[Rfam]
Nucleotides: 089
Stems, first nucleotide, its partner, number of pairs: 023079008035069004040065004048061005
Number, partner (000 for none) and nucleotide at each position: 001000a002000u003000a004000a005000a006000a007000u008000a009000g010000g011000a012000a013000a014000a015000a016000a017000u018000c019000c020000g021000c022000a023079c024078a025077u026076a027075u028074g029073u030072c031000g032000u033000c034000a035069c036068a037067u038066u039000a040065c041064u042063c043062u044000g045000g046000g047000u048061g049060c050059c051058u052057a053000g054000c055000a056000a057052u058051a059050g060049g061048u062043g063042g064041a065040g066038a067037a068036u069035g070000c071000g072030g073029a074028c075027a076026u077025a078024u079023g080000g081000a082000g083000g084000c085000c086000u087000a088000a089000c